[Rfam]
RNA sequence: AUACCCCAUGAUGCUCAGGUCCGCCGCAUCUCCUGGGUCGUGGGGUCGGUCGACUGGCAGGCAUAAUAAAAGCGGUUCCUCGUGCCGUGAUUGCAUGCCGGUCGACCCCCGA
Numbered sequence: 001a002u003a004c005c006c007c008a009u010g011a012u013g014c015u016c017a018g019g020u021c022c023g024c025c026g027c028a029u030c031u032c033c034u035g036g037g038u039c040g041u042g043g044g045g046u047c048g049g050u051c052g053a054c055u056g057g058c059a060g061g062c063a064u065a066a067u068a069a070a071a072g073c074g075g076u077u078c079c080u081c082g083u084g085c086c087g088u089g090a091u092u093g094c095a096u097g098c099c100g101g102u103c104g105a106c107c108c109c110c111g112a
Base pairs, nucleotide, nucleotide: 003046004045005044006043007042008041009040010039014037015036016035017034018033019032048107049106050105051104052103053102054101055100056099057098058097

Record summary:
The family of this 112-nucleotide sequence from Rhizobium sp. LC145 is "EcpR1". Rfam's curators write: Perviously named SmelC291, SmrC10, or Sra33. According to its overproduction phenotype it was renamed Elongated Cell Phenotype RNA1. Induced by stress,EcpR1 negatively regulates cell cycle master regulatory genes dnaA and gcrA at post-transcriptional level by base pairing between its strongly conserved GC-rich loop and the target mRNAs. Gene Ontology terms of the family: regulation of translation in response to stress, negative regulation of cell cycle and mRNA binding. Pairs were carried over by alignment from the consensus structure, which was predicted with WAR. A search with the family's covariance model found it, with a score of 100 bits. It is annotated as a small RNA.